[Rfam]
Shown here is a 165-nucleotide RNA sequence, a member of the family "IS605-orfB-II RNA".
RNA sequence: CAUGAUGAAACAUAUAAUUACGUAUGUUUUGGAUUGUAUAGUGGGUAGUCGCAGUCACCUCACACCUGUUUAAUAUGAUUUUAAAUAAUCCGCUGUUGAAUAAAAUGAAAACAAAUUCUUUAGAAUUUGGAAAAGUUUAAAAACUUUAAGUUUUUAACUAACUGU
Numbered sequence: 001c002a003u004g005a006u007g008a009a010a011c012a013u014a015u016a017a018u019u020a021c022g023u024a025u026g027u028u029u030u031g032g033a034u035u036g037u038a039u040a041g042u043g044g045g046u047a048g049u050c051g052c053a054g055u056c057a058c059c060u061c062a063c064a065c066c067u068g069u070u071u072a073a074u075a076u077g078a079u080u081u082u083a084a085a086u087a088a089u090c091c092g093c094u095g096u097u098g099a100a101u102a103a104a105a106u107g108a109a110a111a112c113a114a115a116u117u118c119u120u121u122a123g124a125a126u127u128u129g130g131a132a133a134a135g136u137u138u139a140a141a142a143a144c145u146u147u148a149a150g151u152u153u154u155u156a157a158c159u160a161a162c163u164g165u
Stems, first nucleotide, its partner, number of pairs: 006031010043060004051165004063107002068101008077089001079087001112129007134159004139154004